[Rfam]
RNA: Small nucleolar RNA SNORA81
Organism: Neogale vison
RNA sequence: ACCUUCUUACUUAAGCUCUCUAUUAAAAUUGCAGAAACUAGUACGAUUUCUUUGUAUUUGUAAUAAAACCAGCAGAUUAAGCUCAAGAAGGAAAGUAACUAUACCAGAUAAUAGAAAAACUGAAAUGAACCUCUUUCUUAAGUCUGCCAUACUUUGUUUUAAGAUUUGGGAUGAGAAUA
Numbered sequence: 001a002c003c004u005u006c007u008u009a010c011u012u013a014a015g016c017u018c019u020c021u022a023u024u025a026a027a028a029u030u031g032c033a034g035a036a037a038c039u040a041g042u043a044c045g046a047u048u049u050c051u052u053u054g055u056a057u058u059u060g061u062a063a064u065a066a067a068a069c070c071a072g073c074a075g076a077u078u079a080a081g082c083u084c085a086a087g088a089a090g091g092a093a094a095g096u097a098a099c100u101a102u103a104c105c106a107g108a109u110a111a112u113a114g115a116a117a118a119a120c121u122g123a124a125a126u127g128a129a130c131c132u133c134u135u136u137c138u139u140a141a142g143u144c145u146g147c148c149a150u151a152c153u154u155u156g157u158u159u160u161a162a163g164a165u166u167u168g169g170g171a172u173g174a175g176a177a178u179a
Base pairs, nucleotide, nucleotide: 019076021074023072024071029066030065031064034058035057037055038054040052041051043049100173101172102171104169105168106167107166108165122150126146127145129143